[Rfam]
RNA sequence: AUGGACCACCACCACAGGCCUUGAAGAAAAGCUAAUGGAGAUCAGGUGAAAGAAUACAAUGCCAAUGCCAAUCUCUCACCUUCCUCCUCAUAUUCCUGGGCUUAACCCGUCAGCCAUGCCUUACUCUCUGCUUGGCUUUUGGAUUCUGCUUUGGCAAACCGGCAAGUCACGAAACGGCGUGGACUCUUCUGAGUCCA
Numbered sequence: 001a002u003g004g005a006c007c008a009c010c011a012c013c014a015c016a017g018g019c020c021u022u023g024a025a026g027a028a029a030a031g032c033u034a035a036u037g038g039a040g041a042u043c044a045g046g047u048g049a050a051a052g053a054a055u056a057c058a059a060u061g062c063c064a065a066u067g068c069c070a071a072u073c074u075c076u077c078a079c080c081u082u083c084c085u086c087c088u089c090a091u092a093u094u095c096c097u098g099g100g101c102u103u104a105a106c107c108c109g110u111c112a113g114c115c116a117u118g119c120c121u122u123a124c125u126c127u128c129u130g131c132u133u134g135g136c137u138u139u140u141g142g143a144u145u146c147u148g149c150u151u152u153g154g155c156a157a158a159c160c161g162g163c164a165a166g167u168c169a170c171g172a173a174a175c176g177g178c179g180u181g182g183a184c185u186c187u188u189c190u191g192a193g194u195c196c197a
Base pairs, nucleotide, nucleotide: 048086049085097158100155101154115148116147182195183194184193185192186191
Overview: Early nodulin 40: a 197-nucleotide RNA from Cucumis sativus. The match comes from Rfam's covariance-model search (48 bits). The family's RNA type in Rfam is non-coding RNA gene. The base pairs follow the family's consensus structure, which is taken from published work. Its family is annotated with nodulation in the Gene Ontology.